[Rfam]
RNA sequence: CGAGAGAACUCUCUCUAAGGAACUCUGCAAAAUGGCCCCGUAACUUCGGGAGAAGGGGUUCCGCGGGUACCGUGAGCGAAGGCUUGCGGGAGGCGGGCACAGGAAAUCGGCUCUAGCGACUGUUUACCACAAUCACAGCACUCUGCGAACCCGGAUAGGGGAGGUAUAGGGUGUGACACCUGCCCGGUGCCGGAAGGUUAAGUGGAGGGGUGAGAGCCCUGAAAUGAAGCCCCGGUGAACGGCGGCGGUAACUAUAACCGUCCUAAGGUAGCGAAAUUCCUUGUCAGGUAAGUUCUGACCUGCACGAAUGGUGUAACGACUGGAGCGCUGUCUCGGAGAGAGACUCG
Numbered sequence: 001c002g003a004g005a006g007a008a009c010u011c012u013c014u015c016u017a018a019g020g021a022a023c024u025c026u027g028c029a030a031a032a033u034g035g036c037c038c039c040g041u042a043a044c045u046u047c048g049g050g051a052g053a054a055g056g057g058g059u060u061c062c063g064c065g066g067g068u069a070c071c072g073u074g075a076g077c078g079a080a081g082g083c084u085u086g087c088g089g090g091a092g093g094c095g096g097g098c099a100c101a102g103g104a105a106a107u108c109g110g111c112u113c114u115a116g117c118g119a120c121u122g123u124u125u126a127c128c129a130c131a132a133u134c135a136c137a138g139c140a141c142u143c144u145g146c147g148a149a150c151c152c153g154g155a156u157a158g159g160g161g162a163g164g165u166a167u168a169g170g171g172u173g174u175g176a177c178a179c180c181u182g183c184c185c186g187g188u189g190c191c192g193g194a195a196g197g198u199u200a201a202g203u204g205g206a207g208g209g210g211u212g213a214g215a216g217c218c219c220u221g222a223a224a225u226g227a228a229g230c231c232c233c234g235g236u237g238a239a240c241g242g243c244g245g246c247g248g249u250a251a252c253u254a255u256a257a258c259c260g261u262c263c264u265a266a267g268g269u270a271g272c273g274a275a276a277u278u279c280c281u282u283g284u285c286a287g288g289u290a291a292g293u294u295c296u297g298a299c300c301u302g303c304a305c306g307a308a309u310g311g312u313g314u315a316a317c318g319a320c321u322g323g324a325g326c327g328c329u330g331u332c333u334c335g336g337a338g339a340g341a342g343a344c345u346c347g
Stems, first nucleotide, its partner, number of pairs: 001347004009342008018333003035059005044049001060097005072087006098102001110326007117318002121135002138174008146164001150160003177313004182243003187240002189236005196231003202225002207220005244262006263267001273300001283299006
RNA: Bacterial large subunit ribosomal RNA, nucleotides 1716 to 2062
Organism: Truepera radiovictrix